This 116-nucleotide RNA from Eubacterium sp. CAG:38 belongs to the Rfam family "ZMP/ZTP riboswitch aptamer (pfl RNA motif)".
[Rfam]
RNA sequence: UAGUUGCUGUACGACUGGCGGAAAAUGCAGGAAGAUGUAAGAACCAUUCUCCUGUAUGUGGGAUUACCCACAGGGAGUACAGAUGUAUAGAUAAGCCGACCGCCUGGGCGACCAUU
Number, nucleotide and partner (000 for none) at each position: 001u000002a000003g086004u085005u000006g000007c082008u081009g080010u079011a078012c077013g000014a000015c074016u073017g104018g103019c102020g101021g100022a000023a000024a000025a000026u000027g000028c000029a000030g000031g000032a000033a000034g000035a000036u000037g000038u000039a000040a000041g000042a000043a000044c000045c000046a000047u000048u000049c000050u000051c000052c000053u000054g000055u000056a000057u000058g071059u070060g069061g068062g000063a000064u000065u000066a000067c000068c061069c060070a059071c058072a000073g016074g015075g000076a000077g012078u011079a010080c009081a008082g007083a000084u000085g004086u003087a000088u000089a000090g000091a000092u000093a000094a000095g109096c108097c107098g000099a000100c021101c020102g019103c018104c017105u000106g000107g097108g096109c095110g000111a000112c000113c000114a000115u000116u000